[Rfam]
RNA sequence: GUCACAUCAGGGCACACCCGAGCGAAAGCCGGGGUCGCAAAGCCUCCGGUCUACCACCGGCACCCCCUUGCGGGGCGUCAGGUCACGAUAGCGGGGUUGCCAGA
Numbered sequence: 001g002u003c004a005c006a007u008c009a010g011g012g013c014a015c016a017c018c019c020g021a022g023c024g025a026a027a028g029c030c031g032g033g034g035u036c037g038c039a040a041a042g043c044c045u046c047c048g049g050u051c052u053a054c055c056a057c058c059g060g061c062a063c064c065c066c067c068u069u070g071c072g073g074g075g076c077g078u079c080a081g082g083u084c085a086c087g088a089u090a091g092c093g094g095g096g097u098u099g100c101c102a103g104a
Stems, first nucleotide, its partner, number of pairs: 012038002017033004022029002041098004046094003049089003056083003

This 104-nucleotide sequence from Roseateles depolymerans belongs to the Rfam family "c-di-GMP-I riboswitch aptamer". Rfam links the family to the GO term cyclic-di-GMP binding. From the family's description: GEMM was predicted in a large-scale screen for bacterial structured RNA regulatory elements.